[Rfam]
RNA: U11 spliceosomal RNA
Organism: Theobroma umbraticum
RNA sequence: AAAAAGGUCGGUUGGCUAAAUAUGCCAUGCUCACCCUCGUCUGGUGGGUGCUGUAUGGCUAUCAAGACAUGUGGCCGACAUAAUUUGUGGAACCCUAAUAAGGUUGGCUCGCUUGGGCGACCCUCUGA
Numbered sequence: 001a002a003a004a005a006g007g008u009c010g011g012u013u014g015g016c017u018a019a020a021u022a023u024g025c026c027a028u029g030c031u032c033a034c035c036c037u038c039g040u041c042u043g044g045u046g047g048g049u050g051c052u053g054u055a056u057g058g059c060u061a062u063c064a065a066g067a068c069a070u071g072u073g074g075c076c077g078a079c080a081u082a083a084u085u086u087g088u089g090g091a092a093c094c095c096u097a098a099u100a101a102g103g104u105u106g107g108c109u110c111g112c113u114u115g116g117g118c119g120a121c122c123c124u125c126u127g128a
Base pairs, nucleotide, nucleotide: 007079008078009077010076011075013027014026015025016024028050029049030048031047032046033045034044035043051074052073053072054071055070056069057068097126102122103121104120105119106118108117109116110115
Dot-bracket structure: ......(((((.((((.......))))((((((((.......))))))))(((((((..........)))))))))))).................(....(((((.(((....))))))))...)..